[Rfam]
RNA sequence: ACAGCUGUGAUGAGCCCAUUUUACAGUUACAGACCUGUAAUGACUCCUGUGGAAAUGAUCGCAUGGUCAAAGACGAGGGAAAACAUGGUUGAA
Numbered sequence: 001a002c003a004g005c006u007g008u009g010a011u012g013a014g015c016c017c018a019u020u021u022u023a024c025a026g027u028u029a030c031a032g033a034c035c036u037g038u039a040a041u042g043a044c045u046c047c048u049g050u051g052g053a054a055a056u057g058a059u060c061g062c063a064u065g066g067u068c069a070a071a072g073a074c075g076a077g078g079g080a081a082a083a084c085a086u087g088g089u090u091g092a093a
Stems, first nucleotide, its partner, number of pairs: 002091008

Small nucleolar RNA SNORD25: a 93-nucleotide sequence from Triticum aestivum. Rfam classes the family as a C/D-box small nucleolar RNA. A reference for the family is Qu et al. (2001), "Identification of 10 novel snoRNA gene clusters from Arabidopsis thaliana", Nucleic Acids Res. A search with the family's covariance model found it, with a score of 42 bits.